RNA sequence: ACAACAAGAACAAGAAAAACGGCAGCAACCUAAUAAAAACAAGACGUACGGAUCUGACAUAACAAGAACAACACGGGCAGAGACGAAGCCAACAGAUUUUUUUGAAGUAGAUUCAGCUCCACCGGGUCUUUUGCAAAAGACCACGCAACCAGGCACAGAACAAUAAAACUACCUUGAGGUAGCACAGAACUGGUUGGAUCGCACUGCUGUGCAGGCAGUCGAUUGAAGCGAGUCAGCGCUCAAAAAAAUACGUUUGCUCUUGACCUCCAUUGAGGUCGCAUGAAAUGCAGUGAAGGGUGGCCCAACAAAAACAACAACACACCACCCUACAAAAAUAAAAAGAGCACGCGACACGACUCAAAAGGGAGCCCAUGGCUCCCUUUGUGCUAUCUGGCCUUUCACACCUCCCCAACGC
Numbered sequence: 001a002c003a004a005c006a007a008g009a010a011c012a013a014g015a016a017a018a019a020c021g022g023c024a025g026c027a028a029c030c031u032a033a034u035a036a037a038a039a040c041a042a043g044a045c046g047u048a049c050g051g052a053u054c055u056g057a058c059a060u061a062a063c064a065a066g067a068a069c070a071a072c073a074c075g076g077g078c079a080g081a082g083a084c085g086a087a088g089c090c091a092a093c094a095g096a097u098u099u100u101u102u103u104g105a106a107g108u109a110g111a112u113u114c115a116g117c118u119c120c121a122c123c124g125g126g127u128c129u130u131u132u133g134c135a136a137a138a139g140a141c142c143a144c145g146c147a148a149c150c151a152g153g154c155a156c157a158g159a160a161c162a163a164u165a166a167a168a169c170u171a172c173c174u175u176g177a178g179g180u181a182g183c184a185c186a187g188a189a190c191u192g193g194u195u196g197g198a199u200c201g202c203a204c205u206g207c208u209g210u211g212c213a214g215g216c217a218g219u220c221g222a223u224u225g226a227a228g229c230g231a232g233u234c235a236g237c238g239c240u241c242a243a244a245a246a247a248a249u250a251c252g253u254u255u256g257c258u259c260u261u262g263a264c265c266u267c268c269a270u271u272g273a274g275g276u277c278g279c280a281u282g283a284a285a286u287g288c289a290g291u292g293a294a295g296g297g298u299g300g301c302c303c304a305a306c307a308a309a310a311a312c313a314a315c316a317a318c319a320c321a322c323c324a325c326c327c328u329a330c331a332a333a334a335a336u337a338a339a340a341a342g343a344g345c346a347c348g349c350g351a352c353a354c355g356a357c358u359c360a361a362a363a364g365g366g367a368g369c370c371c372a373u374g375g376c377u378c379c380c381u382u383u384g385u386g387c388u389a390u391c392u393g394g395c396c397u398u399u400c401a402c403a404c405c406u407c408c409c410c411a412a413c414g415c
Stems, first nucleotide, its partner, number of pairs: 049085002053081003100245005114238001116237002146196007169182005263276005295397004299392001300323001344387004361382001363381007
RNA: Pseudomonas sRNA CrcZ